A member of the RNA family "Listeria sRNA rli28" from Listeria monocytogenes, 189 nucleotides long. Rfam classes the family as a small RNA. Pairs were carried over by alignment from the consensus structure, which was predicted with RNAalifold. It is one of the family's seed sequences.
RNA sequence: UUUCUUAUGCUAUAAUAAAUUUAGUAGUAGUAAAGUGAAAAAGAUGGUGGCUAAAUCUCCAGGAACGGGGGUGAUGCCUCUUGGUUAUAGAAGGUUUUACUCCUAGAAAGGAAUAGCCGUGUCUGUGUAUGAAGCACUGACGUUUGCGGUGGUAUUUGCCACCCUCGUCGUGAUGAUUCUCGACUUUAA
Numbered sequence: 001u002u003u004c005u006u007a008u009g010c011u012a013u014a015a016u017a018a019a020u021u022u023a024g025u026a027g028u029a030g031u032a033a034a035g036u037g038a039a040a041a042a043g044a045u046g047g048u049g050g051c052u053a054a055a056u057c058u059c060c061a062g063g064a065a066c067g068g069g070g071g072u073g074a075u076g077c078c079u080c081u082u083g084g085u086u087a088u089a090g091a092a093g094g095u096u097u098u099a100c101u102c103c104u105a106g107a108a109a110g111g112a113a114u115a116g117c118c119g120u121g122u123c124u125g126u127g128u129a130u131g132a133a134g135c136a137c138u139g140a141c142g143u144u145u146g147c148g149g150u151g152g153u154a155u156u157u158g159c160c161a162c163c164c165u166c167g168u169c170g171u172g173a174u175g176a177u178u179c180u181c182g183a184c185u186u187u188a189a
Stems, first nucleotide, its partner, number of pairs: 047162005067104008076095002121141003125137004167184004172179002